[Rfam]
Plastid-psbA-1 3UTR RNA: a 114-nucleotide RNA sequence from Lobularia libyca. A reference for the family is Richter et al. (2023), "Retrograde signaling in plants: A critical review focusing on the GUN pathway and beyond", Plant Commun. About the family: Plastid psbA-1 is a non-coding RNA (ncRNA) present in plastids. It was identified in inverted repeat sequences in the 3 prime untranslate region (3UTR) of photosystem II quinone-binding protein (psbA). The base pairs follow the family's consensus structure, which was predicted with LocARNA.
RNA sequence: GUUGAGGCUCCAUCUACCAAUGGAUAAUUCUUUAGCGUUAGUCUAGACCUAGUUUAGAAAUACGAGCAAUAUAAGCCUUCUUUAAAUUUAAAAGAAGGCUUAUAUUGCUCAUUU
Numbered sequence: 001g002u003u004g005a006g007g008c009u010c011c012a013u014c015u016a017c018c019a020a021u022g023g024a025u026a027a028u029u030c031u032u033u034a035g036c037g038u039u040a041g042u043c044u045a046g047a048c049c050u051a052g053u054u055u056a057g058a059a060a061u062a063c064g065a066g067c068a069a070u071a072u073a074a075g076c077c078u079u080c081u082u083u084a085a086a087u088u089u090a091a092a093a094g095a096a097g098g099c100u101u102a103u104a105u106u107g108c109u110c111a112u113u114u
Stems, first nucleotide, its partner, number of pairs: 009024005060114001062112001064110009078098001081095003